RNA sequence: UUCAGAUACGGCGAUCUGGUCCCACUCAGCCCUCAAGGGAAGAUCGUCGGCUCAAUGUGCGCGCUGAUUGGAGUGCUUACUCUCGCUCUGCCGGUGCCCAUUAUUGUAAGUUUU
Numbered sequence: 001u002u003c004a005g006a007u008a009c010g011g012c013g014a015u016c017u018g019g020u021c022c023c024a025c026u027c028a029g030c031c032c033u034c035a036a037g038g039g040a041a042g043a044u045c046g047u048c049g050g051c052u053c054a055a056u057g058u059g060c061g062c063g064c065u066g067a068u069u070g071g072a073g074u075g076c077u078u079a080c081u082c083u084c085g086c087u088c089u090g091c092c093g094g095u096g097c098c099c100a101u102u103a104u105u106g107u108a109a110g111u112u113u114u
Stems, first nucleotide, its partner, number of pairs: 004113002007108005013102003018097001021094001037077002040074001050062002
Dot-bracket structure: ...((.(((((.(((..(..(...............((.(.........((.........))...........).))................)..)..))).)))))...)).